Rfam assigns this 70-nucleotide RNA sequence from Eleutherodactylus coqui to the family "Small nucleolar RNA SNORD18". Rfam 15.1 lists 2,622 matches to the family in 960 species. The base pairs follow the family's consensus structure, which was predicted with PFOLD. NCBI's taxonomy places the organism under Eukaryota, Bilateria, Craniata, Tetrapoda, Eleutherodactylus. For this family Rfam cites "Two different snoRNAs are encoded in introns of amphibian and human L1 ribosomal protein genes" (Prislei et al., Nucleic Acids Res, 1993).

RNA sequence: GAGGAAUGAUGAUCUUCCACUUCAUGGUCCGUGUUUCUGAAAUCUGUGAUCUUAUGGAAGUUCUGACCUU
Numbered sequence: 001g002a003g004g005a006a007u008g009a010u011g012a013u014c015u016u017c018c019a020c021u022u023c024a025u026g027g028u029c030c031g032u033g034u035u036u037c038u039g040a041a042a043u044c045u046g047u048g049a050u051c052u053u054a055u056g057g058a059a060g061u062u063c064u065g066a067c068c069u070u
Stems, first nucleotide, its partner, number of pairs: 001070004